[Rfam]
RNA sequence: GUCUUCGAGGAGCGUUGCGACGGGUACCGCGAAUCCGCAUAUUCGCCGGCCGCCCGCCAGGCUCGAAGGCUUCAAUCGGAGGGCCCGGAUGCGCAAAAGCGCUGUCCUAUCCACCGCAUCGAACCGCGCUCACGUCAA
Numbered sequence: 001g002u003c004u005u006c007g008a009g010g011a012g013c014g015u016u017g018c019g020a021c022g023g024g025u026a027c028c029g030c031g032a033a034u035c036c037g038c039a040u041a042u043u044c045g046c047c048g049g050c051c052g053c054c055c056g057c058c059a060g061g062c063u064c065g066a067a068g069g070c071u072u073c074a075a076u077c078g079g080a081g082g083g084c085c086c087g088g089a090u091g092c093g094c095a096a097a098a099g100c101g102c103u104g105u106c107c108u109a110u111c112c113a114c115c116g117c118a119u120c121g122a123a124c125c126g127c128g129c130u131c132a133c134g135u136c137a138a
Stems, first nucleotide, its partner, number of pairs: 002069007021056005
The record is a 138-nucleotide RNA from Paraburkholderia ribeironis, which matches "SAH (S-adenosyl-L-homocysteine) riboswitch aptamer" in Rfam. Gene Ontology terms of the family: regulation of gene expression and S-adenosylhomocysteine metabolic process. Rfam 15.1 lists 1,354 matches to the family in 1,132 species. The match comes from Rfam's covariance-model search (44 bits). Pairs were carried over by alignment from the consensus structure, which is taken from published work.